[Rfam]
Rfam assigns this 77-nucleotide RNA from Equus asinus to the family "bZIP non canonical Hac1/Xbp1 intron". The base pairs follow the family's consensus structure, which was predicted with RNAfold. About the family: bZIP intron RNA is a non-canonical intron that was first reported in HAC1 gene in yeast and XBP1 gene in Metazoa. On this family, see Iracane et al., mSphere 2018: "Identification of an Exceptionally Long Intron in the HAC1 Gene of Candida parapsilosis".
RNA sequence: CGGUGAGCGGGUCUGCUGAGUCCGCAGCACUCAGUCUACGUGCGCCUCUGCAGCAGGUGCAGGCCCAGUCGUCACCC
Numbered sequence: 001c002g003g004u005g006a007g008c009g010g011g012u013c014u015g016c017u018g019a020g021u022c023c024g025c026a027g028c029a030c031u032c033a034g035u036c037u038a039c040g041u042g043c044g045c046c047u048c049u050g051c052a053g054c055a056g057g058u059g060c061a062g063g064c065c066c067a068g069u070c071g072u073c074a075c076c077c
Stems, first nucleotide, its partner, number of pairs: 002076005009066005016034006043059005